A member of the RNA family "mir-10 microRNA precursor family" from Coregonus sp. 'balchen', 70 nucleotides long. The organism belongs to Coregonus, within Eukaryota. The base pairs follow the family's consensus structure, which was predicted with PFOLD. The literature on the family includes a 2001 paper in Science by Lee and Ambros, "An extensive class of small RNAs in Caenorhabditis elegans". Gene Ontology terms of the family: miRNA-mediated post-transcriptional gene silencing and RISC complex. It scores 70 bits against the family's covariance model. The family has 36 seed sequences and 3,853 matches in Rfam 15.1.
RNA sequence: CGCCACAAACCCGUAGAUCCGAAUUUGUGUUGUCUGGCCACACAAGCUCGUGUCUAUAGGUAUGUGUCUG
Numbered sequence: 001c002g003c004c005a006c007a008a009a010c011c012c013g014u015a016g017a018u019c020c021g022a023a024u025u026u027g028u029g030u031u032g033u034c035u036g037g038c039c040a041c042a043c044a045a046g047c048u049c050g051u052g053u054c055u056a057u058a059g060g061u062a063u064g065u066g067u068c069u070g
Stems, first nucleotide, its partner, number of pairs: 002068001004066004010060002015055004020050003024046006